About this RNA:
The record is an 89-nucleotide RNA from Nelumbo nucifera, which matches "MIR319 microRNA precursor family" in Rfam. Rfam 15.1 lists 168 matches to the family in 79 species. Taxonomically the source falls in Nelumbo (Eukaryota, Embryophyta, Spermatophyta, Proteales). The base pairs follow the family's consensus structure, which was predicted with RNAalifold.
[Rfam]
RNA sequence: CAGAAAUAGGAGUUCCUAUCAGCCCAAAACAGUCUGUAGAUUGUUUUUUCUUAUCGUCUGUUUUGGACUGAAGGGAGCUCCUAAUUCUU
Dot-bracket structure: ......(((((((((((...((.(((((.................................))))).))...)))))))))))......